[Rfam]
RNA: Purine riboswitch aptamer
RNA sequence: ACAAAAUUGAACAUACUAACUCAUAUAUCCCUUGAAUAUGGCAAGGAGUAUCUACCGGAAACCAAAAAUUUCUGACUAUGAGUAAAAUUAGAGAACCU
Numbered sequence: 001a002c003a004a005a006a007u008u009g010a011a012c013a014u015a016c017u018a019a020c021u022c023a024u025a026u027a028u029c030c031c032u033u034g035a036a037u038a039u040g041g042c043a044a045g046g047a048g049u050a051u052c053u054a055c056c057g058g059a060a061a062c063c064a065a066a067a068a069u070u071u072c073u074g075a076c077u078a079u080g081a082g083u084a085a086a087a088u089u090a091g092a093g094a095a096c097c098u
Stems, first nucleotide, its partner, number of pairs: 019083007030046005056074006